[Rfam]
RNA sequence: AACAUGCUUCCUUAGAUCCACCUUUGUGGAUGAAUCUUGAACUGAGUUCUGCUUGUAAACAUUUUGUUUCUUGUAGUUCCAGUCAAGCAUCCAGCAACUUUUUGGUUGUACAGUCGAAGGUGCUUGAGUCAUUGGCAUGUGAGAUAAAUACACCUGCAUGUUAGUCUGAGGUUCUGAUAGAGAUGACAUGCAGUUAUGCUGUCACUUUUUACUAUCAGGAUUCGACUGGUAUGCGGACACU
Numbered sequence: 001a002a003c004a005u006g007c008u009u010c011c012u013u014a015g016a017u018c019c020a021c022c023u024u025u026g027u028g029g030a031u032g033a034a035u036c037u038u039g040a041a042c043u044g045a046g047u048u049c050u051g052c053u054u055g056u057a058a059a060c061a062u063u064u065u066g067u068u069u070c071u072u073g074u075a076g077u078u079c080c081a082g083u084c085a086a087g088c089a090u091c092c093a094g095c096a097a098c099u100u101u102u103u104g105g106u107u108g109u110a111c112a113g114u115c116g117a118a119g120g121u122g123c124u125u126g127a128g129u130c131a132u133u134g135g136c137a138u139g140u141g142a143g144a145u146a147a148a149u150a151c152a153c154c155u156g157c158a159u160g161u162u163a164g165u166c167u168g169a170g171g172u173u174c175u176g177a178u179a180g181a182g183a184u185g186a187c188a189u190g191c192a193g194u195u196a197u198g199c200u201g202u203c204a205c206u207u208u209u210u211a212c213u214a215u216c217a218g219g220a221u222u223c224g225a226c227u228g229g230u231a232u233g234c235g236g237a238c239a240c241u
Stems, first nucleotide, its partner, number of pairs: 002140007011128005019122008027093006036087002041083004046079001049076004055070001057069004094109006154236005161229001163227004173219008184211003188207001190202003
RNA: Small nucleolar RNA SNORA53
Organism: Fukomys damarensis